[Rfam]
RNA sequence: CGCAGAGGACGACCUCCCCAUCCGGGACAAGCUGUCGGGACGGCCCGG
Numbered sequence: 001c002g003c004a005g006a007g008g009a010c011g012a013c014c015u016c017c018c019c020a021u022c023c024g025g026g027a028c029a030a031g032c033u034g035u036c037g038g039g040a041c042g043g044c045c046c047g048g
Stems, first nucleotide, its partner, number of pairs: 002019001005016004035048005

Rfam assigns this 48-nucleotide RNA sequence from Mangrovicoccus algicola to the family "Guanidine-II riboswitch aptamer (mini-ykkC)". Lineage of the source: Bacteria > Pseudomonadati > Alphaproteobacteria > Paracoccaceae > Mangrovicoccus. A search with the family's covariance model found it, with a score of 32 bits. Its family is annotated with regulation of gene expression in the Gene Ontology.